[Rfam]
Nucleotides: 134
Base pairs, nucleotide, nucleotide: 002066003065004064005063006062007061008060011058012057013056014055015054019046020045021044022043023042024041025040026039074124075123076122077121078120080118081117082116088112089111090110093107094106095105096104
Number, partner (000 for none) and nucleotide at each position: 001000g002066c003065u004064c005063u006062c007061u008060c009000a010000g011058c012057u013056c014055u015054g016000c017000a018000c019046a020045g021044u022043c023042a024041c025040a026039u027000u028000u029000g030000u031000u032000g033000u034000u035000c036000c037000a038000c039026g040025u041024g042023u043022g044021g045020c046019u047000u048000u049000c050000g051000u052000a053000a054015c055014g056013g057012a058011g059000a060008g061007a062006g063005a064004g065003a066002g067000g068000a069000a070000a071000g072000a073000u074124c075123u076122c077121c078120u079000c080118a081117g082116g083000a084000c085000c086000u087000c088112a089111g090110a091000g092000c093107g094106g095105c096104c097000u098000g099000g100000u101000g102000g103000u104096g105095g106094c107093c108000a109000c110090u111089c112088u113000u114000u115000c116082c117081u118080u119000g120078a121077g122076g123075g124074g125000u126000g127000c128000g129000a130000c131000a132000g133000a134000u
Rfam assigns this 134-nucleotide sequence from Crocuta crocuta to the family "Small nucleolar RNA SNORA64/SNORA10 family".
It is annotated as an H/ACA-box small nucleolar RNA.
The family's consensus secondary structure is taken from published work.
The literature on the family includes a 1999 paper in EMBO J by Narayanan et al., "Nucleolar localization signals of box H/ACA small nucleolar RNAs".
Its Rfam clan is "SNORA64 clan".
This family belongs to the H/ACA class of small nucleolar RNAs (snoRNAs) which act as guides in the the modification of uridines to pseudouridines. This family includes the human snoRNAs U64 and ACA10 and mouse MBI-29.